[Rfam]
RNA sequence: ACGACUGGAUAGGGAGAACUGGCGCAAGCCAGUGCCGAAGGAGCAACCGCCCCGGAAACUCUCAGGCGCAAGGACCUGCCCGGUAAC
Numbered sequence: 001a002c003g004a005c006u007g008g009a010u011a012g013g014g015a016g017a018a019c020u021g022g023c024g025c026a027a028g029c030c031a032g033u034g035c036c037g038a039a040g041g042a043g044c045a046a047c048c049g050c051c052c053c054g055g056a057a058a059c060u061c062u063c064a065g066g067c068g069c070a071a072g073g074a075c076c077u078g079c080c081c082g083g084u085a086a087c
Stems, first nucleotide, its partner, number of pairs: 006082003010078004019032004034067003037063002041061003047055002
The family of this 87-nucleotide sequence from Roseovarius azorensis is "Glycine riboswitch aptamer".
NCBI's taxonomy places the organism under Bacteria, Pseudomonadati, Alphaproteobacteria, Roseobacteraceae, Roseovarius.